RNA sequence: CUGCAUGCGGCUGAUGACAGCACUCCUGCUGAGACUCUGAUUGCUCUGUCUCAGAGUAAACACCCUGAUGCACUGUGG
Numbered sequence: 001c002u003g004c005a006u007g008c009g010g011c012u013g014a015u016g017a018c019a020g021c022a023c024u025c026c027u028g029c030u031g032a033g034a035c036u037c038u039g040a041u042u043g044c045u046c047u048g049u050c051u052c053a054g055a056g057u058a059a060a061c062a063c064c065c066u067g068a069u070g071c072a073c074u075g076u077g078g
Stems, first nucleotide, its partner, number of pairs: 006072004010021004029048001031046003
Shown here is a 78-nucleotide RNA sequence from Aotus nancymaae, a member of the family "Small nucleolar RNA U105B". Gene Ontology terms of the family: RNA processing and nucleolus. A reference for the family is Yang et al. (2006), "snoSeeker: an advanced computational package for screening of guide and orphan snoRNA genes in the human genome", Nucleic Acids Res. The source organism's lineage runs through Eukaryota, Haplorrhini, Simiiformes, Aotidae and Aotus. The family's RNA type in Rfam is C/D-box small nucleolar RNA. Its Rfam clan is "SNORD105 clan".